[Rfam]
RNA sequence: GUAGUCAGAUUCACAUCAAUCCGUAUUUGUUGGGGGUGGAUUGGAGUGGAACUUGAACUAAAUUCCACUCUAAUCCACCCCAACAAAUGUGGAUUGAGGUGAAUCCGACA
Numbered sequence: 001g002u003a004g005u006c007a008g009a010u011u012c013a014c015a016u017c018a019a020u021c022c023g024u025a026u027u028u029g030u031u032g033g034g035g036g037u038g039g040a041u042u043g044g045a046g047u048g049g050a051a052c053u054u055g056a057a058c059u060a061a062a063u064u065c066c067a068c069u070c071u072a073a074u075c076c077a078c079c080c081c082a083a084c085a086a087a088u089g090u091g092g093a094u095u096g097a098g099g100u101g102a103a104u105c106c107g108a109c110a
Stems, first nucleotide, its partner, number of pairs: 004109003008105007016097017036078009046068003
MIR5565 microRNA precursor family: a 110-nucleotide sequence from Miscanthus lutarioriparius. NCBI's taxonomy places the organism under Eukaryota, Euphyllophyta, Petrosaviidae, Andropogoneae, Miscanthus. The family's consensus secondary structure was predicted with RNAalifold.